[Rfam]
RNA: Small nucleolar RNA snoR109
RNA sequence: CGGCUGUAGCUAAAUCGAAUCAAACAUGGCUGAGAAGCUAACUGGCCGGUUGUCGUGAUCGGUUUCUUUAUCGAAAUCUCCGUCGACUAAUCUGCUUACCGAGCUUCUUACAUUU
Numbered sequence: 001c002g003g004c005u006g007u008a009g010c011u012a013a014a015u016c017g018a019a020u021c022a023a024a025c026a027u028g029g030c031u032g033a034g035a036a037g038c039u040a041a042c043u044g045g046c047c048g049g050u051u052g053u054c055g056u057g058a059u060c061g062g063u064u065u066c067u068u069u070a071u072c073g074a075a076a077u078c079u080c081c082g083u084c085g086a087c088u089a090a091u092c093u094g095c096u097u098a099c100c101g102a103g104c105u106u107c108u109u110a111c112a113u114u115u
Base pairs, nucleotide, nucleotide: 032109033108034107035106036105037104038103039102044096045095046094048092049091050090051089052087053086054085055084